RNA sequence: CAGGGGGACUGAGGGUGAGCAGGCCCGGACCCCAGCCUGUGCUGACUCUCAGUCCCUCCCUA
Numbered sequence: 001c002a003g004g005g006g007g008a009c010u011g012a013g014g015g016u017g018a019g020c021a022g023g024c025c026c027g028g029a030c031c032c033c034a035g036c037c038u039g040u041g042c043u044g045a046c047u048c049u050c051a052g053u054c055c056c057u058c059c060c061u062a
Base pairs, nucleotide, nucleotide: 003058004057005056006055007054008053009052010051011050012049013048014047015046016045018043019042020041021040022037023036024035
A member of the RNA family "mir-6794 microRNA precursor family" from Sapajus apella, 62 nucleotides long.
Lineage of the source: Eukaryota > Bilateria > Chordata > Gnathostomata > Sapajus.
It scores 79 bits against the family's covariance model.